[Rfam]
RNA: Small nucleolar RNA SNORA5
Organism: Chelonia mydas
RNA sequence: AGCAGCCAUGUCAAAUUCAGUACUGUCCUUGUCUGUGGUUGGUACUGGCCCAGCUGGCUGCCACAGCAAUAUCUGUAGUUCAUGGGCCCCAUGUCUCUAUUACUGGACCCUGGGGAUAAAAGAAUGCUACAGACACCU
Numbered sequence: 001a002g003c004a005g006c007c008a009u010g011u012c013a014a015a016u017u018c019a020g021u022a023c024u025g026u027c028c029u030u031g032u033c034u035g036u037g038g039u040u041g042g043u044a045c046u047g048g049c050c051c052a053g054c055u056g057g058c059u060g061c062c063a064c065a066g067c068a069a070u071a072u073c074u075g076u077a078g079u080u081c082a083u084g085g086g087c088c089c090c091a092u093g094u095c096u097c098u099a100u101u102a103c104u105g106g107a108c109c110c111u112g113g114g115g116a117u118a119a120a121a122g123a124a125u126g127c128u129a130c131a132g133a134c135a136c137c138u
Stems, first nucleotide, its partner, number of pairs: 002061004018047008027038002075130005080124001087115005